Annotation
Shown here is a 120-nucleotide RNA from Leptotrichia sp. oral taxon 215, a member of the family "FMN riboswitch aptamer (RFN element)". The organism belongs to Leptotrichia sp. oral taxon 215, within Bacteria. Pairs were carried over by alignment from the consensus structure, which is taken from published work.

Nucleotides: 120
Base pairs, nucleotide, nucleotide: 003118005116006115007114008113009112010111017029018028019027031100032099033090034089035051036050037049038048046088047087070086071085072084073083074082092103093102094101
Number, partner (000 for none) and nucleotide at each position: 001000a002000u003118u004000a005116a006115a007114c008113u009112u010111c011000a012000g013000g014000g015000c016000a017029g018028g019027g020000u021000g022000a023000a024000a025000u026000u027019c028018c029017c030000g031100a032099c033090c034089g035051g036050u037049g038048g039000u040000a041000u042000a043000u044000a045000a046088g047087u048038c049037c050036a051035c052000g053000c054000g055000a056000u057000u058000g059000a060000a061000a062000a063000a064000u065000c066000a067000a068000g069000a070086a071085c072084c073083g074082g075000u076000g077000u078000g079000a080000u081000u082074c083073c084072g085071g086070u087047a088046c089034c090033g091000a092103u093102a094101g095000u096000a097000u098000a099032g100031u101094c102093u103092a104000g105000a106000u107000g108000a109000a110000a111010g112009a113008a114007g115006u116005u117000g118003a119000a120000a